Notes: The record is a 52-nucleotide RNA sequence from Norovirus norwalkense, which matches "Norovirus cis-acting replication element (CRE)" in Rfam. The family's RNA type in Rfam is cis-regulatory element.
RNA sequence: AGUGGCCAUCCACACCAUAUACGGAAGAAUGAAUGCUGGAAUGGAGAUUCCU
Numbered sequence: 001a002g003u004g005g006c007c008a009u010c011c012a013c014a015c016c017a018u019a020u021a022c023g024g025a026a027g028a029a030u031g032a033a034u035g036c037u038g039g040a041a042u043g044g045a046g047a048u049u050c051c052u
Base pairs, nucleotide, nucleotide: 004051005050009045010044011043012042015039016038017037022035023034